[Rfam]
A member of the RNA family "mir-9195 microRNA precursor family" from Cnephaeus nilssonii, 87 nucleotides long. Rfam links the family to the GO terms RISC complex and miRNA-mediated post-transcriptional gene silencing. A search with the family's covariance model found it, with a score of 93 bits.
RNA sequence: AGAAGCCCUCCGUGGCCAGGGUGGAAUGCUUGCCUCCUCACCCCAGUGACAAAGCAAGCAUUCCGCCAGGCCACUCACACUGCCUGC
Numbered sequence: 001a002g003a004a005g006c007c008c009u010c011c012g013u014g015g016c017c018a019g020g021g022u023g024g025a026a027u028g029c030u031u032g033c034c035u036c037c038u039c040a041c042c043c044c045a046g047u048g049a050c051a052a053a054g055c056a057a058g059c060a061u062u063c064c065g066c067c068a069g070g071c072c073a074c075u076c077a078c079a080c081u082g083c084c085u086g087c
Stems, first nucleotide, its partner, number of pairs: 005083002012074006020067014038049004